The record is a 359-nucleotide RNA from Desulfovibrio sp. 6_1_46AFAA, which matches "Bacterial RNase P class A" in Rfam. A reference for the family is Brown (1999), "The Ribonuclease P Database", Nucleic Acids Res. The source organism's lineage runs through Bacteria, Thermodesulfobacteriota, Desulfovibrionales, Desulfovibrionaceae and Desulfovibrio.

RNA sequence: GGAGCCGGACAGACCGUCGCUGCGGGCCAUUGGCCCGGAGAGGAAAGUCCGGGCUCCACAGGGCAGGACGCUGGGUAACACCCAGGAGGGGCGACCCUCGGACAGCGCCACAGAAAGCAAACCGCCGUGCUUUGCGCGGUAAGGGUGAAACGGUGGGGCAAGAGCCCACCAGAUGCCGCGGUGACGCGGCAUGCUCGGCAUACCCCGUCUGGAGCAAGACCAAAUAGGGAAGGCGGCCGGCCCGGCCCAUGCCUUCCGGGUAGGUUGCUUGAGGGCGCGGGCAAUCGCGCUCCUAGAGGAAUGACGGUCACAUGCGACUUGUCGCAUGACAGAACCCGGCUUAUCGUCCGGCUCCCGCU
Numbered sequence: 001g002g003a004g005c006c007g008g009a010c011a012g013a014c015c016g017u018c019g020c021u022g023c024g025g026g027c028c029a030u031u032g033g034c035c036c037g038g039a040g041a042g043g044a045a046a047g048u049c050c051g052g053g054c055u056c057c058a059c060a061g062g063g064c065a066g067g068a069c070g071c072u073g074g075g076u077a078a079c080a081c082c083c084a085g086g087a088g089g090g091g092c093g094a095c096c097c098u099c100g101g102a103c104a105g106c107g108c109c110a111c112a113g114a115a116a117g118c119a120a121a122c123c124g125c126c127g128u129g130c131u132u133u134g135c136g137c138g139g140u141a142a143g144g145g146u147g148a149a150a151c152g153g154u155g156g157g158g159c160a161a162g163a164g165c166c167c168a169c170c171a172g173a174u175g176c177c178g179c180g181g182u183g184a185c186g187c188g189g190c191a192u193g194c195u196c197g198g199c200a201u202a203c204c205c206c207g208u209c210u211g212g213a214g215c216a217a218g219a220c221c222a223a224a225u226a227g228g229g230a231a232g233g234c235g236g237c238c239g240g241c242c243c244g245g246c247c248c249a250u251g252c253c254u255u256c257c258g259g260g261u262a263g264g265u266u267g268c269u270u271g272a273g274g275g276c277g278c279g280g281g282c283a284a285u286c287g288c289g290c291u292c293c294u295a296g297a298g299g300a301a302u303g304a305c306g307g308u309c310a311c312a313u314g315c316g317a318c319u320u321g322u323c324g325c326a327u328g329a330c331a332g333a334a335c336c337c338g339g340c341u342u343a344u345c346g347u348c349c350g351g352c353u354c355c356c357g358c359u
Stems, first nucleotide, its partner, number of pairs: 001355010011344001012309007020040002023037006045342003049339005054214004061243004066210005071085005086099005100205002105203001107199003122144002124140007152170006172194001173192008218266004228257006235247004273292008